A member of the RNA family "Small nucleolar RNA SNORA40" from Nannospalax galili, 120 nucleotides long. NCBI's taxonomy places the organism under Eukaryota, Vertebrata, Teleostomi, Boreoeutheria, Nannospalax. Rfam 15.1 lists 2,550 matches to the family in 517 species. Pairs were carried over by alignment from the consensus structure, which was predicted with RNAalifold. Rfam classes the family as an H/ACA-box small nucleolar RNA. For this family Rfam cites "Mapping to nucleotide resolution of pseudouridine residues in large subunit ribosomal RNAs from representative eukaryotes, prokaryotes, archaebacteria, mitochondria and chloroplasts" (Ofengand and Bakin, J Mol Biol, 1997). Rfam links the family to the GO terms nucleolus and RNA processing. The snoRNA ACA 40 belongs to the H/ACA family of snoRNAs and guides the pseudouridylation of 28S rRNA subunit at position U4565. NB This family has a high threshold value to exclude a large number of closely related sequences that do not appear to have conserved H and ACA boxes, and may be pseudogenes.

RNA sequence: AGCACUUUGUAUGUGUUCAACUAGUGGACAAAGUCAUGAAAGACAGGUACAAAAAUCAAUCUUCUUCUGCCCAGAACUCACUAUUCAGUAUGAGCUUUGAUACAUCCAAGAAGGGACAUG
Numbered sequence: 001a002g003c004a005c006u007u008u009g010u011a012u013g014u015g016u017u018c019a020a021c022u023a024g025u026g027g028a029c030a031a032a033g034u035c036a037u038g039a040a041a042g043a044c045a046g047g048u049a050c051a052a053a054a055a056u057c058a059a060u061c062u063u064c065u066u067c068u069g070c071c072c073a074g075a076a077c078u079c080a081c082u083a084u085u086c087a088g089u090a091u092g093a094g095c096u097u098u099g100a101u102a103c104a105u106c107c108a109a110g111a112a113g114g115g116a117c118a119u120g
Stems, first nucleotide, its partner, number of pairs: 002050001004048004008043001010041001013035001014030003021026001060116004065111002068108002072099004077094004